[Rfam]
RNA sequence: AGAUAUUGCCUUUCAGGCAUCCUCUCCCAAAACUUUCCGGCCUGGCGGGCAACUGCCGGGCCAUUUUUUUGUCUUUC
Numbered sequence: 001a002g003a004u005a006u007u008g009c010c011u012u013u014c015a016g017g018c019a020u021c022c023u024c025u026c027c028c029a030a031a032a033c034u035u036u037c038c039g040g041c042c043u044g045g046c047g048g049g050c051a052a053c054u055g056c057c058g059g060g061c062c063a064u065u066u067u068u069u070u071g072u073c074u075u076u077c
Stems, first nucleotide, its partner, number of pairs: 008018004039062009

Rfam assigns this 77-nucleotide RNA sequence from Novosphingobium hassiacum to the family "Makes More Granules Regulator RNA (mmgR)". The match comes from Rfam's covariance-model search (56 bits). The base pairs follow the family's consensus structure. Lineage of the source: Bacteria > Pseudomonadota > Alphaproteobacteria > Sphingomonadales > Novosphingobium. Rfam classes the family as a small RNA.